[Rfam]
RNA sequence: UGGUCACAGAAUAAGUUAUUCUGUGGCCAAUUUGAGUUACGAUAAUUACUAUACUAAUUUAUGAGAUUAUGGUAACCUCCUCAUAAGUAAUUUACUAUAGCAUUAUGGUAAGUAUCAUAUUAAAUUAUAGUAACUCAUGUAUCGUAAAUGUGUAUUGUCAUUAUCGUAAAUUGGUACAAACAUUAUCGUAAAUUAAGGUGGCCAUAGAAUAAGUUAUUCUAUGAUCA
Numbered sequence: 001u002g003g004u005c006a007c008a009g010a011a012u013a014a015g016u017u018a019u020u021c022u023g024u025g026g027c028c029a030a031u032u033u034g035a036g037u038u039a040c041g042a043u044a045a046u047u048a049c050u051a052u053a054c055u056a057a058u059u060u061a062u063g064a065g066a067u068u069a070u071g072g073u074a075a076c077c078u079c080c081u082c083a084u085a086a087g088u089a090a091u092u093u094a095c096u097a098u099a100g101c102a103u104u105a106u107g108g109u110a111a112g113u114a115u116c117a118u119a120u121u122a123a124a125u126u127a128u129a130g131u132a133a134c135u136c137a138u139g140u141a142u143c144g145u146a147a148a149u150g151u152g153u154a155u156u157g158u159c160a161u162u163a164u165c166g167u168a169a170a171u172u173g174g175u176a177c178a179a180a181c182a183u184u185a186u187c188g189u190a191a192a193u194u195a196a197g198g199u200g201g202c203c204a205u206a207g208a209a210u211a212a213g214u215u216a217u218u219c220u221a222u223g224a225u226c227a
Stems, first nucleotide, its partner, number of pairs: 001227006008220007016212014031197003037191010050178001052176011065165003069161003073157003081147001083145002087142003092137001093132008103122001108116001
The family of this 227-nucleotide RNA sequence from Miscanthus lutarioriparius is "MIR6217 microRNA precursor family". Taxonomically the source falls in Miscanthus (Eukaryota, Tracheophyta, commelinids, Saccharinae). Gene Ontology terms of the family: miRNA-mediated post-transcriptional gene silencing and RISC complex.